The record is a 110-nucleotide RNA from Actinomyces sp. 2119, which matches "Actinomyces-1 RNA" in Rfam. A search with the family's covariance model found it, with a score of 78 bits. By type it is a small RNA.
[Rfam]
RNA sequence: CUCACCGCUGGACGGGGGCUGCCGCGAGGUACUGGGGAGUACUGCUGACCGGUUGUCACCGAGUCCGGGCCACAGCCAAGGGAAUGUGCCUGGGCGUCCCAGCGAAGGAG
Numbered sequence: 001c002u003c004a005c006c007g008c009u010g011g012a013c014g015g016g017g018g019c020u021g022c023c024g025c026g027a028g029g030u031a032c033u034g035g036g037g038a039g040u041a042c043u044g045c046u047g048a049c050c051g052g053u054u055g056u057c058a059c060c061g062a063g064u065c066c067g068g069g070c071c072a073c074a075g076c077c078a079a080g081g082g083a084a085u086g087u088g089c090c091u092g093g094g095c096g097u098c099c100c101a102g103c104g105a106a107g108g109a110g
Stems, first nucleotide, its partner, number of pairs: 006104006013061003018056002021053004028043002031040003063095006071088004